[Rfam]
RNA: small nucleolar RNA snoR137
Organism: Microthlaspi erraticum
RNA sequence: UUUGCUUCAUAAUGGUGAACUCUCUUAGAAUAAAGUGAGAGAUGUUCAAGUUUCCGGAGCAAAUAUAAAACUGGCCAGAAUUUAACAGCUCUGUGUUUAUCUCUAUCUUCACAGUGUUACCUGUCUUCUGGUAUAUUU
Numbered sequence: 001u002u003u004g005c006u007u008c009a010u011a012a013u014g015g016u017g018a019a020c021u022c023u024c025u026u027a028g029a030a031u032a033a034a035g036u037g038a039g040a041g042a043u044g045u046u047c048a049a050g051u052u053u054c055c056g057g058a059g060c061a062a063a064u065a066u067a068a069a070a071c072u073g074g075c076c077a078g079a080a081u082u083u084a085a086c087a088g089c090u091c092u093g094u095g096u097u098u099a100u101c102u103c104u105a106u107c108u109u110c111a112c113a114g115u116g117u118u119a120c121c122u123g124u125c126u127u128c129u130g131g132u133a134u135a136u137u138u
Stems, first nucleotide, its partner, number of pairs: 003061006016048005021042005074132007087118003091114005